Rfam assigns this 107-nucleotide RNA from Mediterranea sp. An20 to the family "Bacteroidales small SRP". The base pairs follow the family's consensus structure, which is taken from published work. The source organism's lineage runs through Bacteria, Pseudomonadati, Bacteroidia, Bacteroidaceae and Mediterranea. Its Rfam clan is "SRP clan".
RNA sequence: CCAAAAUGGGUAAGUCCUACACGGCCAGCUCCUUGUGAAUCCUCCAGGGCUUGACCGCAGCAAAGGUAGCAGGUCGUAGCGGCGCGAUGUAGUAAGCUUACCCACCC
Number, nucleotide and partner (000 for none) at each position: 001c000002c000003a000004a000005a000006a000007u000008g103009g102010g101011u100012a099013a098014g097015u096016c000017c092018u091019a090020c089021a088022c086023g085024g083025c082026c000027a000028g000029c000030u000031c000032c000033u000034u000035g000036u000037g000038a000039a000040u000041c000042c000043u000044c000045c000046a000047g000048g000049g000050c000051u000052u000053g000054a000055c000056c000057g000058c000059a000060g000061c000062a000063a000064a000065g000066g000067u000068a000069g000070c000071a000072g000073g000074u000075c000076g000077u000078a000079g000080c000081g000082g025083c024084g000085c023086g022087a000088u021089g020090u019091a018092g017093u000094a000095a000096g015097c014098u013099u012100a011101c010102c009103c008104a000105c000106c000107c000